Nucleotides: 059
Base pairs, nucleotide, nucleotide: 001057002056003055004054005053006052007051008050009049010048011047014044016042017041018040020039021038022037025034026033027032
Number, partner (000 for none) and nucleotide at each position: 001057c002056c003055g004054u005053g006052u007051u008050c009049u010048g011047u012000u013000c014044c015000u016042g017041a018040c019000u020039c021038g022037g023000c024000u025034g026033g027032u028000a029000g030000g031000c032027a033026c034025c035000c036000u037022c038021c039020g040018g041017u042016u043000a044014g045000u046000c047011a048010c049009a050008g051007a052006a053005c054004a055003c056002g057001g058000g059000a
The family of this 59-nucleotide RNA from Aphis gossypii is "mir-3017 microRNA precursor family". Its family is annotated with miRNA-mediated post-transcriptional gene silencing and RISC complex in the Gene Ontology. The family has 2 seed sequences and 58 matches in Rfam 15.1. It scores 53 bits against the family's covariance model.